RNA: Small nucleolar RNA snR80
RNA sequence: UGCCCUUUGCCAACACUCUGGCCCCUACCUCCUUCCUUCGCGGAUAGGUGUGAUCUUAUGGUAUAGGCCAAUUUUGAUGCAAAGGAGAUGAAGUCCGUUUGACCUGUUACUCACCGCGGCAUUUUAUCCUCCUGGGGUGAAUGCAGCGGUCCAUAUCUGAGGUCUACAU
Numbered sequence: 001u002g003c004c005c006u007u008u009g010c011c012a013a014c015a016c017u018c019u020g021g022c023c024c025c026u027a028c029c030u031c032c033u034u035c036c037u038u039c040g041c042g043g044a045u046a047g048g049u050g051u052g053a054u055c056u057u058a059u060g061g062u063a064u065a066g067g068c069c070a071a072u073u074u075u076g077a078u079g080c081a082a083a084g085g086a087g088a089u090g091a092a093g094u095c096c097g098u099u100u101g102a103c104c105u106g107u108u109a110c111u112c113a114c115c116g117c118g119g120c121a122u123u124u125u126a127u128c129c130u131c132c133u134g135g136g137g138u139g140a141a142u143g144c145a146g147c148g149g150u151c152c153a154u155a156u157c158u159g160a161g162g163u164c165u166a167c168a169u
Stems, first nucleotide, its partner, number of pairs: 007082003019070005026063004101164004114149004119144003123141003